[Rfam]
RNA sequence: CCCUUAUCAAGAGAGGUUGAGGGAGCGGCCCUAUGAAACCUCAGCAACCAGCAGCGUAAAGCUGAAAAGGUGCUAAUUCCUGCGAGUCCACAUAAUGACUUGUAAAGAUAAGAA
Numbered sequence: 001c002c003c004u005u006a007u008c009a010a011g012a013g014a015g016g017u018u019g020a021g022g023g024a025g026c027g028g029c030c031c032u033a034u035g036a037a038a039c040c041u042c043a044g045c046a047a048c049c050a051g052c053a054g055c056g057u058a059a060a061g062c063u064g065a066a067a068a069g070g071u072g073c074u075a076a077u078u079c080c081u082g083c084g085a086g087u088c089c090a091c092a093u094a095a096u097g098a099c100u101u102g103u104a105a106a107g108a109u110a111a112g113a114a
Base pairs, nucleotide, nucleotide: 003112004111005110006109007108008107013042014041015040016039017038021031022030023029027080028079043074044073045072046071048070049069052064053063078106083102084101085100086099087098088097
This 114-nucleotide RNA sequence from Fictibacillus arsenicus belongs to the Rfam family "SAM riboswitch aptamer (S box leader)".
Rfam describes the family as follows. The SAM riboswitch is found upstream of a number of genes which code for proteins involved in methionine or cysteine biosynthesis in Gram-positive bacteria.